Rfam assigns this 89-nucleotide RNA sequence from Fukomys damarensis to the family "let-7 microRNA precursor family". Its family is annotated with RISC complex and miRNA-mediated post-transcriptional gene silencing in the Gene Ontology. On this family, see Rougvie, Nat Rev Genet 2001: "Control of developmental timing in animals". NCBI's taxonomy places the organism under Eukaryota, Metazoa, Deuterostomia, Hystricomorpha, Fukomys. The family's consensus secondary structure was predicted with RNAalifold.

[Rfam]
RNA sequence: CUGGGGUGAGGUAGUAAGUUGUAUUGUUGUGGGGUAGGGAUCUGAGGCCCCAGUAAGAAGGUAACUAUACAACUUACUACUUUCCCUGG
Dot-bracket structure: ((((((.(((((((((((((((((.((....(((..............)))..(....)....)).)))))))))))))))))))))))